[Rfam]
RNA sequence: UUCUUAUCAAGAGAAGCCGAGGGACUGGCCCGAUGACGCUUCAGCAACCGUUGCCUGAUGGGGCGACAAGGUGCUAAUUCCAGCAAGCAUGGAUUAUAUGCUUGAGGGAUAAGAA
Numbered sequence: 001u002u003c004u005u006a007u008c009a010a011g012a013g014a015a016g017c018c019g020a021g022g023g024a025c026u027g028g029c030c031c032g033a034u035g036a037c038g039c040u041u042c043a044g045c046a047a048c049c050g051u052u053g054c055c056u057g058a059u060g061g062g063g064c065g066a067c068a069a070g071g072u073g074c075u076a077a078u079u080c081c082a083g084c085a086a087g088c089a090u091g092g093a094u095u096a097u098a099u100g101c102u103u104g105a106g107g108g109a110u111a112a113g114a115a
Base pairs, nucleotide, nucleotide: 001115002114003113004112005111006110007109008108013042014041015040016039017038021031022030023029025083026082027081028080043075044074045073046072048071049070050067051066052065053064079107084104085103086102087101088100089099090098091097
The family of this 115-nucleotide RNA sequence from Sporolactobacillus putidus is "SAM riboswitch aptamer (S box leader)". The SAM riboswitch is found upstream of a number of genes which code for proteins involved in methionine or cysteine biosynthesis in Gram-positive bacteria.